The family of this 438-nucleotide sequence from Thermodesulfatator indicus is "Bacterial RNase P class A".
[Rfam]
RNA sequence: GGGGUCGGUCGGAGGUCGCCGGGGAGUAAUCCUCGGAGGAAAGUCCGAGCUCCACAGGGCAGGGUGCCGGGUAACUCCCGGAGGGGGUAACCCCUGGAAAGUGCCACAGAAAACAGACCGCCCCGUACCCAUUUUCAGGGCGAAUUGAAUCUAUAGACGAUUGAGAAGGUACGUUUAUUUUUAGGGGCUACCCAAUUUGCCUCAAAAAUGGGUGCGGGGUAAGGGUGAAAAGGUGGGGUAAGAGCCCACCGCCUCUCCUGGUAACAGGAGAGGGCACGGCAAACCCCACCCGGAGAAAGGCCAUGUAGGGGAGCGCUUGAGGGUGCCCCGCCCGAUGCUCCCGGGUAGGCCGCUUGAGCGGUUGGGUAACCAAUCGCCUAGAGGAAUGACCUCCACCCCGAAUGGGGUACAGAACUCGGCUUAUGGCCGGCCCCUUUU
Number, nucleotide and partner (000 for none) at each position: 001g434002g433003g432004g431005u430006c429007g428008g427009u426010c425011g394012g393013a392014g391015g390016u389017c388018g000019c036020c035021g034022g033023g032024g031025a030026g000027u000028a000029a000030u025031c024032c023033u022034c021035g020036g019037a000038g000039g000040a000041a422042a421043g420044u000045c419046c418047g417048a416049g415050c295051u294052c293053c292054a000055c000056a000057g329058g328059g327060c000061a000062g291063g290064g289065u288066g287067c081068c080069g079070g078071g077072u000073a000074a000075c000076u000077c071078c070079c069080g068081g067082a095083g094084g093085g092086g091087g000088u000089a000090a000091c086092c085093c084094c083095u082096g286097g285098a000099a000100a000101g284102u283103g280104c279105c278106a000107c000108a000109g000110a000111a000112a000113a000114c000115a000116g000117a000118c224119c223120g220121c219122c218123c217124c216125g215126u214127a213128c212129c211130c210131a209132u208133u207134u206135u205136c000137a000138g000139g000140g000141c000142g000143a000144a000145u000146u000147g000148a000149a000150u000151c000152u000153a000154u000155a000156g000157a000158c000159g000160a000161u000162u000163g000164a000165g000166a000167a000168g000169g000170u000171a000172c000173g000174u000175u000176u000177a000178u000179u000180u000181u000182u000183a000184g000185g000186g000187g000188c000189u000190a000191c000192c000193c000194a000195a000196u000197u000198u000199g000200c000201c000202u000203c000204a000205a135206a134207a133208a132209u131210g130211g129212g128213u127214g126215c125216g124217g123218g122219g121220u120221a000222a000223g119224g118225g000226u000227g000228a000229a000230a000231a000232g250233g249234u248235g247236g246237g245238g000239u000240a000241a000242g000243a000244g000245c237246c236247c235248a234249c233250c232251g000252c274253c272254u271255c270256u269257c268258c267259u266260g265261g000262u000263a000264a000265c260266a259267g258268g257269a256270g255271a254272g253273g000274g252275c000276a000277c000278g105279g104280c103281a000282a000283a102284c101285c097286c096287c066288a065289c064290c063291c062292g053293g052294a051295g050296a000297a000298a000299g351300g350301c349302c348303a000304u000305g000306u000307a000308g000309g342310g341311g340312a339313g338314c337315g000316c000317u000318u000319g000320a000321g333322g332323g331324u330325g000326c000327c059328c058329c057330g324331c323332c322333c321334g000335a000336u000337g314338c313339u312340c311341c310342c309343g000344g000345g000346u000347a000348g302349g301350c300351c299352g000353c000354u000355u000356g000357a000358g377359c376360g375361g374362u373363u372364g371365g370366g000367u000368a000369a000370c365371c364372a363373a362374u361375c360376g359377c358378c000379u000380a000381g000382a000383g000384g000385a000386a000387u000388g017389a016390c015391c014392u013393c012394c011395a000396c000397c000398c000399c000400g000401a000402a000403u000404g000405g000406g000407g000408u000409a000410c000411a000412g000413a000414a000415c049416u048417c047418g046419g045420c043421u042422u041423a000424u000425g010426g009427c008428c007429g006430g005431c004432c003433c002434c001435u000436u000437u000438u000

Annotation: NCBI's taxonomy places the organism under Bacteria, Pseudomonadati, Thermodesulfobacteriales, Thermodesulfatator, Thermodesulfatator indicus. Rfam describes the family as follows. Ribonuclease P (RNase P) is a ubiquitous endoribonuclease, found in archaea, bacteria and eukarya as well as chloroplasts and mitochondria. By type it is a ribozyme.